[Rfam]
RNA sequence: ACCCGCUCAGAGCGUCCUUCGUGGCGCCCGGAGCAGCAGAGACAGACUGUGCCCUGGGAAGUUCUGGGCACUUCAGGGCGUU
Number, nucleotide and partner (000 for none) at each position: 001a000002c000003c000004c000005g034006c033007u032008c031009a000010g029011a000012g027013c026014g025015u024016c023017c000018u000019u000020c000021g000022u000023g016024g015025c014026g013027c012028c000029c010030g000031g008032a007033g006034c005035a000036g000037c000038a000039g000040a000041g000042a000043c000044a000045g000046a000047c000048u000049g071050u070051g069052c068053c067054c066055u000056g064057g000058g000059a000060a000061g000062u000063u000064c056065u000066g054067g053068g052069c051070a050071c049072u000073u000074c000075a000076g000077g000078g000079c000080g000081u000082u000

The family of this 82-nucleotide sequence is "nrdJ RNA".
A search with the family's covariance model found it, with a score of 68 bits.
The base pairs follow the family's consensus structure, which is taken from published work.